[Rfam]
RNA sequence: AUGUCCAGGCGGCCGAGUCCUCCGUCUGUGGCGGAGGAGCCGGGGACCCACCCGGGCCGCCUUCGAGCGGCCCGAUGGGGUGAAUCCGCAAGGUAGGGCUGCUUCCGUCCGAACCCGUCAGCUAACCCGGCAGGCCCUCUGGAAGGAGCAU
Number, nucleotide and partner (000 for none) at each position: 001a000002u000003g000004u000005c000006c000007a000008g000009g000010c000011g136012g135013c134014c133015g000016a000017g000018u038019c037020c036021u035022c034023c033024g032025u031026c030027u000028g000029u000030g026031g025032c024033g023034g022035a021036g020037g019038a018039g131040c130041c129042g128043g127044g126045g000046a000047c000048c000049c077050a076051c000052c000053c000054g000055g000056g000057c000058c000059g000060c000061c000062u000063u000064c000065g000066a000067g000068c000069g000070g000071c000072c000073c000074g000075a000076u050077g049078g116079g115080g114081u000082g000083a000084a000085u000086c093087c092088g000089c000090a000091a000092g087093g086094u000095a000096g110097g109098g108099c107100u000101g000102c000103u000104u000105c000106c000107g099108u098109c097110c096111g000112a000113a000114c080115c079116c078117g000118u000119c000120a000121g000122c000123u000124a000125a000126c044127c043128c042129g041130g040131c039132a000133g014134g013135c012136c011137c000138u000139c000140u000141g000142g000143a000144a000145g000146g000147a000148g000149c000150a000151u000
RNA: c-di-AMP riboswitch aptamer (ydaO/yuaA leader)